[Rfam]
Nucleotides: 096
Stems, first nucleotide, its partner, number of pairs: 006067004015029005030058003035054003039049002044090001046088001069080004
Number, partner (000 for none) and nucleotide at each position: 001000a002000c003000c004000c005000a006067g007066c008065a009064u010000c011000u012000g013000g014000a015029a016028g017027g018026a019025a020000u021000u022000u023000a024000u025019u026018u027017c028016c029015u030058g031057c032056c033000a034000a035054c036053c037052g038000a039049u040048c041000a042000a043000c044090u045000c046088a047000c048040g049039a050000c051000a052037c053036g054035g055000u056032g057031g058030c059000u060000u061000a062000g063000u064009a065008u066007g067006c068000g069080g070079a071078a072077c073000a074000g075000u076000c077072g078071u079070u080069c081000a082000a083000a084000u085000g086000u087000g088046u089000u090044g091000a092000g093000a094000a095000a096000u
Notes
The record is a 96-nucleotide sequence from Flavobacteria bacterium BAL38, which matches "SAM-I/IV (S-adenosyl methionine) riboswitch aptamer" in Rfam. A reference for the family is Weinberg et al. (2008), "The aptamer core of SAM-IV riboswitches mimics the ligand-binding site of SAM-I riboswitches", RNA.